[Rfam]
RNA sequence: GGACGAUGGGUGGGCGAUCAUGGUAGAAGCGUUCACGUCGCAAUCCUUGUCAGGCUUUAAACAAAGCCUGCAAAUUCUACC
Numbered sequence: 001g002g003a004c005g006a007u008g009g010g011u012g013g014g015c016g017a018u019c020a021u022g023g024u025a026g027a028a029g030c031g032u033u034c035a036c037g038u039c040g041c042a043a044u045c046c047u048u049g050u051c052a053g054g055c056u057u058u059a060a061a062c063a064a065a066g067c068c069u070g071c072a073a074a075u076u077c078u079a080c081c
Stems, first nucleotide, its partner, number of pairs: 013047002016045003022081007029041003051070007

Annotation: A member of the RNA family "Mammalian CPEB3 ribozyme" from Muraenolepis orangiensis, 81 nucleotides long. It scores 54 bits against the family's covariance model. The mammalian CPEB3 ribozyme is a self cleaving RNA located in the second intron of the CPEB3 gene which belongs to a family of genes regulating messenger RNA polyadenylation. This ribozyme is highly conserved and found only in mammals. The CPEB3 ribozyme is structurally and biochemically related to the human hepatitis delta virus (HDV) ribozyme and the HDV ribozyme is proposed to have arisen from the human transcriptome. There is currently only one other known self cleaving ribozyme in mammals, the CoTC motif.